Small nucleolar RNA SNORA61: a 131-nucleotide sequence from Octodon degus. Pairs were carried over by alignment from the consensus structure, which was predicted with PFOLD. ACA61 is a member of the H/ACA class of snoRNA that guide the sites of modification of uridines to pseudouridines.
[Rfam]
RNA sequence: GCCCUCUAGUUCCCUUUCCCAUCAGAUCUGAACACUGGUCUUGGUGGUUGUAAAGGAGGAAAGGGAACACUGAAGCUGGCCUCAUGGCCUUAUAGUCUGAUAUGUAGCACGUGGGUGAGAUUCAGAUACAC
Numbered sequence: 001g002c003c004c005u006c007u008a009g010u011u012c013c014c015u016u017u018c019c020c021a022u023c024a025g026a027u028c029u030g031a032a033c034a035c036u037g038g039u040c041u042u043g044g045u046g047g048u049u050g051u052a053a054a055g056g057a058g059g060a061a062a063g064g065g066a067a068c069a070c071u072g073a074a075g076c077u078g079g080c081c082u083c084a085u086g087g088c089c090u091u092a093u094a095g096u097c098u099g100a101u102a103u104g105u106a107g108c109a110c111g112u113g114g115g116u117g118a119g120a121u122u123c124a125g126a127u128a129c130a131c
Base pairs, nucleotide, nucleotide: 003059004058005057006056007055019047020046021045022044023043025040026039027038028037076119077118079116080115081114082113091109093107